[Rfam]
RNA: malK-I RNA
RNA sequence: UAUUAUGCAUGUGGGGCUCUCCUUACUGUCUGCCGUGUACUUUUAUUUUGGCGCGGCAAAUGCAAGCUCUUCGUGACAUAAAAAAAGGAGGAAUUCAUUUCCCUUUGGCUCGGGGUGCGGCAGUGUGGAGACCUGUCGUAAUGCGGGUGGCUUUUGCCCCUGCGAGGCCGCAUCAGGAGGAUUCCGUGCGGUUGGAGCCGUGUAGGUAUGGCA
Numbered sequence: 001u002a003u004u005a006u007g008c009a010u011g012u013g014g015g016g017c018u019c020u021c022c023u024u025a026c027u028g029u030c031u032g033c034c035g036u037g038u039a040c041u042u043u044u045a046u047u048u049u050g051g052c053g054c055g056g057c058a059a060a061u062g063c064a065a066g067c068u069c070u071u072c073g074u075g076a077c078a079u080a081a082a083a084a085a086a087g088g089a090g091g092a093a094u095u096c097a098u099u100u101c102c103c104u105u106u107g108g109c110u111c112g113g114g115g116u117g118c119g120g121c122a123g124u125g126u127g128g129a130g131a132c133c134u135g136u137c138g139u140a141a142u143g144c145g146g147g148u149g150g151c152u153u154u155u156g157c158c159c160c161u162g163c164g165a166g167g168c169c170g171c172a173u174c175a176g177g178a179g180g181a182u183u184c185c186g187u188g189c190g191g192u193u194g195g196a197g198c199c200g201u202g203u204a205g206g207u208a209u210g211g212c213a
Stems, first nucleotide, its partner, number of pairs: 008075004013070006101115004106200006116140008125132002143163005149158003166193008176185003